[Rfam]
RNA sequence: UGUCUCCUCCACCCUCCUCCUUUGGUGGAUUUGCCCGGAAUCUUUUGAUUCCGGGUUUUUUUU
Numbered sequence: 001u002g003u004c005u006c007c008u009c010c011a012c013c014c015u016c017c018u019c020c021u022u023u024g025g026u027g028g029a030u031u032u033g034c035c036c037g038g039a040a041u042c043u044u045u046u047g048a049u050u051c052c053g054g055g056u057u058u059u060u061u062u063u
Stems, first nucleotide, its partner, number of pairs: 008029006033056008
Betaproteobacteria toxic small RNA: a 63-nucleotide sequence from Oligella urethralis.
The organism belongs to Oligella urethralis, within Bacteria.
The literature on the family includes a 2012 paper in Genome Res by Kimelman et al., "A vast collection of microbial genes that are toxic to bacteria".
Rfam 15.1 lists 951 matches to the family in 508 species.